[Rfam]
RNA sequence: AUAGGGAAGAAGAAGCACCCGCUUCUCACCUGGUUGACGCGGUCUGCUGUUGACAGGUUUUACGUAAAUGGUUUGUCUUGAACCUUUUUUAUGUACGUAAGUGUGGGUGUAUGCACCCGCACUUUUUUAUUGUA
Numbered sequence: 001a002u003a004g005g006g007a008a009g010a011a012g013a014a015g016c017a018c019c020c021g022c023u024u025c026u027c028a029c030c031u032g033g034u035u036g037a038c039g040c041g042g043u044c045u046g047c048u049g050u051u052g053a054c055a056g057g058u059u060u061u062a063c064g065u066a067a068a069u070g071g072u073u074u075g076u077c078u079u080g081a082a083c084c085u086u087u088u089u090u091a092u093g094u095a096c097g098u099a100a101g102u103g104u105g106g107g108u109g110u111a112u113g114c115a116c117c118c119g120c121a122c123u124u125u126u127u128u129a130u131u132g133u134a
Stems, first nucleotide, its partner, number of pairs: 011026006028058003036051003039047002102121008
This 134-nucleotide RNA from Bacillus sp. B-jedd belongs to the Rfam family "Ribosomal protein L20 leader". The source organism's lineage runs through Bacteria, Bacillati, Bacillota, Caryophanales and Bacillus. A search with the family's covariance model found it, with a score of 75 bits.